[Rfam]
RNA sequence: CCGGCUCCGGUUCACGAUGCGGUUUCCGUUGCGCUGGCUCGAUGCAGUGCGCGCCGCUCGACCCGGCGGCC
Numbered sequence: 001c002c003g004g005c006u007c008c009g010g011u012u013c014a015c016g017a018u019g020c021g022g023u024u025u026c027c028g029u030u031g032c033g034c035u036g037g038c039u040c041g042a043u044g045c046a047g048u049g050c051g052c053g054c055c056g057c058u059c060g061a062c063c064c065g066g067c068g069g070c071c
Stems, first nucleotide, its partner, number of pairs: 003071003007066004015060003019057004
RNA: L31-Actinobacteria ribosomal protein leader